[Rfam]
RNA sequence: GGCAGGUGAUGUCUGUUAUUUUCACGAUGGUCUUCAGAUGCCCACCCCGGGCACUGCUGAGAAAGCAGUUGGCACAGCUGAUGCCAGGAG
Numbered sequence: 001g002g003c004a005g006g007u008g009a010u011g012u013c014u015g016u017u018a019u020u021u022u023c024a025c026g027a028u029g030g031u032c033u034u035c036a037g038a039u040g041c042c043c044a045c046c047c048c049g050g051g052c053a054c055u056g057c058u059g060a061g062a063a064a065g066c067a068g069u070u071g072g073c074a075c076a077g078c079u080g081a082u083g084c085c086a087g088g089a090g
Base pairs, nucleotide, nucleotide: 001085002084003083004082
RNA: Small nucleolar RNA SNORD35
Organism: Delphinapterus leucas